[Rfam]
Nucleotides: 304
Base pairs, nucleotide, nucleotide: 002303003302004301008298009297010296013253014252015251016250018248022052023051024050025049062288063287064286065285066284072229074227084094085093086092097112098111100109101108102107114220115219116218117217118216119215133206134205135204254276255275256274257273258272
Number, partner (000 for none) and nucleotide at each position: 001000a002303g003302u004301a005000g006000a007000g008298g009297g010296a011000a012000a013253c014252u015251c016250a017000u018248u019000g020000g021000c022052a023051g024050g025049g026000a027000c028000a029000c030000a031000c032000a033000u034000u035000g036000a037000g038000u039000g040000c041000u042000g043000a044000g045000a046000a047000g048000a049025c050024c051023c052022u053000u054000g055000a056000g057000a058000a059000g060000g061000u062288c063287u064286g065285a066284g067000a068000c069000u070000u071000g072229g073000u074227c075000a076000a077000c078000u079000a080000g081000a082000a083000u084094c085093c086092c087000u088000a089000a090000u091000g092086g093085g094084g095000c096000c097112c098111u099000c100109c101108c102107c103000a104000a105000g106000u107102g108101g109100g110000a111098a112097g113000a114220u115219g116218a117217g118216u119215u120000u121000c122000a123000a124000g125000a126000g127000a128000g129000c130000a131000g132000g133206g134205u135204u136000c137000u138000g139000g140000g141000c142000u143000g144000g145000g146000c147000c148000u149000g150000a151000c152000c153000a154000a155000g156000u157000u158000g159000g160000a161000g162000a163000g164000g165000u166000c167000a168000u169000g170000c171000u172000g173000c174000a175000a176000g177000c178000a179000u180000g181000g182000g183000a184000a185000a186000u187000a188000c189000c190000c191000c192000u193000c194000c195000c196000c197000u198000c199000a200000c201000a202000g203000c204135a205134g206133c207000u208000u209000g210000g211000a212000a213000c214000a215119g216118a217117c218116u219115c220114a221000c222000a223000u224000c225000c226000a227074g228000c229072c230000a231000g232000u233000c234000a235000a236000g237000u238000g239000g240000g241000c242000u243000c244000a245000a246000u247000g248018g249000c250016u251015g252014a253013g254276g255275u256274g257273a258272g259000c260000c261000a262000c263000c264000c265000u266000u267000u268000a269000g270000u271000c272258c273257u274256c275255a276254u277000a278000a279000c280000c281000c282000a283000a284066u285065u286064c287063a288062g289000a290000c291000u292000a293000c294000u295000c296010u297009c298008c299000c300000a301004u302003g303002c304000c